[Rfam]
RNA sequence: GAGUCGUGGUGUGUGGCGAGGUUAACCCGGGUGGGGGAGCCGUAGCGAAAGCGAGUCUGAAUAGGGCGUUUGAGUCGCAUGCUGUGGACCCGAAGCGGGGUGAUCUACGCAUGGGCAGGGUGAAGCUCAGGUAAGACUGGGUGGAGGCCCGAACCCACCAGGGUUGAAAACCUGGGGGAUGAUCUGUGUGUAGGGGUGAAAGGCCAAUCAAACUCCGUGAUAGCUGGUU
Numbered sequence: 001g002a003g004u005c006g007u008g009g010u011g012u013g014u015g016g017c018g019a020g021g022u023u024a025a026c027c028c029g030g031g032u033g034g035g036g037g038a039g040c041c042g043u044a045g046c047g048a049a050a051g052c053g054a055g056u057c058u059g060a061a062u063a064g065g066g067c068g069u070u071u072g073a074g075u076c077g078c079a080u081g082c083u084g085u086g087g088a089c090c091c092g093a094a095g096c097g098g099g100g101u102g103a104u105c106u107a108c109g110c111a112u113g114g115g116c117a118g119g120g121u122g123a124a125g126c127u128c129a130g131g132u133a134a135g136a137c138u139g140g141g142u143g144g145a146g147g148c149c150c151g152a153a154c155c156c157a158c159c160a161g162g163g164u165u166g167a168a169a170a171c172c173u174g175g176g177g178g179a180u181g182a183u184c185u186g187u188g189u190g191u192a193g194g195g196g197u198g199a200a201a202g203g204c205c206a207a208u209c210a211a212a213c214u215c216c217g218u219g220a221u222a223g224c225u226g227g228u229u
Stems, first nucleotide, its partner, number of pairs: 005086013020041004026035003045052002055067004089227002092224001096217006105193011116181001118150004125142006154178003158175005195205003
Dot-bracket structure: ....(((((((((((((..((((..(((....)))..))))...((....))..((((.....))))......)))))))))))))..((.(...((((((...((((((((((((.((((...((((((......))))))....))))...(((.(((((........))))))))..).))))))))))).(((.....)))......))))))......).))..
Notes: This 229-nucleotide part of an RNA from Sphaerimonospora thailandensis belongs to the Rfam family "Bacterial large subunit ribosomal RNA". NCBI's taxonomy places the organism under Bacteria, Bacillati, Actinomycetota, Actinomycetes, Sphaerimonospora. On this family, see Cannone et al., BMC Bioinformatics 2002: "The comparative RNA web (CRW) site: an online database of comparative sequence and structure information for ribosomal, intron, and other RNAs".